The record is a 102-nucleotide RNA sequence from Alkalihalophilus pseudofirmus, which matches "Purine riboswitch aptamer" in Rfam.

RNA sequence: CGAGAAAACAGAAUAUCACCUCAUAUAAUCACGGGAAUAAGGCCCGAAAGUCUCUACCCAAUGACCGUAAAUCGUUGGACUAUGAGGGAAAGUGUCACUUCA
Numbered sequence: 001c002g003a004g005a006a007a008a009c010a011g012a013a014u015a016u017c018a019c020c021u022c023a024u025a026u027a028a029u030c031a032c033g034g035g036a037a038u039a040a041g042g043c044c045c046g047a048a049a050g051u052c053u054c055u056a057c058c059c060a061a062u063g064a065c066c067g068u069a070a071a072u073c074g075u076u077g078g079a080c081u082a083u084g085a086g087g088g089a090a091a092g093u094g095u096c097a098c099u100u101c102a
Stems, first nucleotide, its partner, number of pairs: 019087007029049001032046004058078007
Taxonomically the source falls in Alkalihalophilus pseudofirmus (Bacteria, Bacillati, Caryophanales, Alkalihalophilus).